[Rfam]
RNA sequence: AGACGGAAGGUGUCGCCGGCAUAGUCGCCCCCGCUGACGGUGCUUUCCAGGGAGCGAGUGCAAACUCGCUCCCGCUGCUACCUUCCUGCGGAUCCCCCCUCCGUCGGAAGGCGCGUGGACGGCGAGGUUUCCCCCAGCCUCGCCGUCCAUUCCC
Numbered sequence: 001a002g003a004c005g006g007a008a009g010g011u012g013u014c015g016c017c018g019g020c021a022u023a024g025u026c027g028c029c030c031c032c033g034c035u036g037a038c039g040g041u042g043c044u045u046u047c048c049a050g051g052g053a054g055c056g057a058g059u060g061c062a063a064a065c066u067c068g069c070u071c072c073c074g075c076u077g078c079u080a081c082c083u084u085c086c087u088g089c090g091g092a093u094c095c096c097c098c099c100u101c102c103g104u105c106g107g108a109a110g111g112c113g114c115g116u117g118g119a120c121g122g123c124g125a126g127g128u129u130u131c132c133c134c135c136a137g138c139c140u141c142g143c144c145g146u147c148c149a150u151u152c153c154c
Stems, first nucleotide, its partner, number of pairs: 009044007017036004050073009074116002079113001081111002085107002088104001090102003117148012

Shown here is a 154-nucleotide sequence from a Bradyrhizobiaceae bacterium, a member of the family "Bradyrhizobiaceae sRNA BjrC80". The family's RNA type in Rfam is small RNA. On this family, see Madhugiri et al., RNA Biol 2012: "Small RNAs of the Bradyrhizobium/Rhodopseudomonas lineage and their analysis". It scores 105 bits against the family's covariance model. The pairing is the family consensus, mapped onto this sequence.